[Rfam]
RNA sequence: GAGAACGGAACUUCGCCAGAGAGAUGAAGUCAGUUCCCGGCGUUUCGGGGAGGAAACGCUCUUUAAAACAGAAGAGGCCCGGCAGUGUGUUUAUCCCCCAUUGCCGGGCCUUUCUAAU
Numbered sequence: 001g002a003g004a005a006c007g008g009a010a011c012u013u014c015g016c017c018a019g020a021g022a023g024a025u026g027a028a029g030u031c032a033g034u035u036c037c038c039g040g041c042g043u044u045u046c047g048g049g050g051a052g053g054a055a056a057c058g059c060u061c062u063u064u065a066a067a068a069c070a071g072a073a074g075a076g077g078c079c080c081g082g083c084a085g086u087g088u089g090u091u092u093a094u095c096c097c098c099c100a101u102u103g104c105c106g107g108g109c110c111u112u113u114c115u116a117a118u
Stems, first nucleotide, its partner, number of pairs: 001038001003036004008031002012028004017023001039060008073113015
The record is a 118-nucleotide RNA from Asticcacaulis sp. YBE204, which matches "Caulobacter sRNA CrfA" in Rfam.
The family's RNA type in Rfam is small RNA.
Lineage of the source: Bacteria > Pseudomonadota > Caulobacterales > Caulobacteraceae > Asticcacaulis.